[Rfam]
RNA sequence: AUGAGUUAGUGAUGACUUUUGAAAUUAAAAACAGAUGGGAAUCUCUCUGAAAAUGUACAGAUGAUUUGAACUCAG
Number, nucleotide and partner (000 for none) at each position: 001a000002u074003g073004a072005g071006u070007u069008a000009g000010u000011g000012a000013u000014g000015a000016c000017u000018u000019u000020u000021g000022a000023a000024a000025u000026u000027a000028a000029a000030a000031a000032c000033a000034g000035a000036u000037g000038g000039g000040a000041a000042u000043c000044u000045c000046u000047c000048u000049g000050a000051a000052a000053a000054u000055g000056u000057a000058c000059a000060g000061a000062u000063g000064a000065u000066u000067u000068g000069a007070a006071c005072u004073c003074a002075g000
Small nucleolar RNA SNORD79: a 75-nucleotide RNA sequence from Neomonachus schauinslandi. Its Rfam clan is "SNORD74 clan". Rfam classes the family as a C/D-box small nucleolar RNA. From the family's description: snoRNA U79 or Z22 is found in intron 7 of the gas5 gene in humans and is also present in mice. Gene Ontology terms of the family: RNA processing and nucleolus. A reference for the family is Galardi et al. (2002), "Purified box C/D snoRNPs are able to reproduce site-specific 2'-O-methylation of target RNA in vitro", Mol Cell Biol.